Rfam assigns this 75-nucleotide RNA sequence from Helianthus annuus to the family "Plastid-ycf2 5UTR RNA". A reference for the family is Richter et al. (2023), "Retrograde signaling in plants: A critical review focusing on the GUN pathway and beyond", Plant Commun. From the family's description: Plastid ycf2 is a non-coding RNA (ncRNA) recognised in plastids. It was found in the prime untranslated region (5UTR) of ycf2 genes, it presents a tRNA-like motif which suggests it can be involved in mRNA maturation, particularly involved in defining the precise 5' end of the transcript. The family's consensus secondary structure was predicted with LocARNA. Rfam 15.1 lists 3,521 matches to the family in 417 species.
RNA sequence: GAAAGUCCAAUAGGAACUGAACUUAGGAAUUUGCCAAUUAUGAGUUGAAUGCUUUAACCAUUCAGCUAUGGAUGU
Numbered sequence: 001g002a003a004a005g006u007c008c009a010a011u012a013g014g015a016a017c018u019g020a021a022c023u024u025a026g027g028a029a030u031u032u033g034c035c036a037a038u039u040a041u042g043a044g045u046u047g048a049a050u051g052c053u054u055u056a057a058c059c060a061u062u063c064a065g066c067u068a069u070g071g072a073u074g075u
Base pairs, nucleotide, nucleotide: 003075005073006072007071008070011025012024013023014022040069041068042067044066045065046064047063048062049061050060051059